[Rfam]
RNA sequence: AGGUUUCGGUGAACAUUCAACGCUGUUGGUGAGUUUGGUCACUGAUGUUGAACCAUCGACCGUUGAGUGUACCCUGUGGCCCU
Numbered sequence: 001a002g003g004u005u006u007c008g009g010u011g012a013a014c015a016u017u018c019a020a021c022g023c024u025g026u027u028g029g030u031g032a033g034u035u036u037g038g039u040c041a042c043u044g045a046u047g048u049u050g051a052a053c054c055a056u057c058g059a060c061c062g063u064u065g066a067g068u069g070u071a072c073c074c075u076g077u078g079g080c081c082c083u
Stems, first nucleotide, its partner, number of pairs: 001083003004079002007076002014069009025060007033053004
Shown here is an 83-nucleotide RNA sequence from Struthio camelus, a member of the family "mir-181 microRNA precursor family". Gene Ontology terms of the family: miRNA-mediated post-transcriptional gene silencing and RISC complex. The literature on the family includes a 2003 paper in RNA by Lagos-Quintana et al., "New microRNAs from mouse and human".